[Rfam]
RNA sequence: AUUAACGUAAUGAUGAGCUACGUUUUUACCUUGGGACACCUAUGAAAUGCCUUGAUUAGUGUAAAUUUAUUAUCGCUGAAAUUUAA
Dot-bracket structure: .((((.............................................................................))))

Record summary:
A member of the RNA family "Small nucleolar RNA Me28S-Gm3113" from Drosophila grimshawi, 86 nucleotides long. The source organism's lineage runs through Eukaryota, Eumetabola, Aparaglossata, Panorpida and Hawaiian Drosophila. For this family Rfam cites "Genome-wide analyses of two families of snoRNA genes from Drosophila melanogaster, demonstrating the extensive utilization of introns for coding of snoRNAs" (Huang et al., RNA, 2005). The family has 15 seed sequences and 34 matches in Rfam 15.1. Pairs were carried over by alignment from the consensus structure, which was predicted with ILM. Gene Ontology terms of the family: nucleolus and RNA processing.